The family of this 75-nucleotide RNA is "DUF3800-X RNA". Rfam classes the family as a small RNA.
RNA sequence: UAGUGCUGUAAGUCCUUCCCGAAAAGGAUGAGGCCGCCCUGAGGCGGAUGGGACGAAGUAGGGAAGGGUUCACUA
Numbered sequence: 001u002a003g004u005g006c007u008g009u010a011a012g013u014c015c016u017u018c019c020c021g022a023a024a025a026g027g028a029u030g031a032g033g034c035c036g037c038c039c040u041g042a043g044g045c046g047g048a049u050g051g052g053a054c055g056a057a058g059u060a061g062g063g064a065a066g067g068g069u070u071c072a073c074u075a
Stems, first nucleotide, its partner, number of pairs: 001075005013068008034047005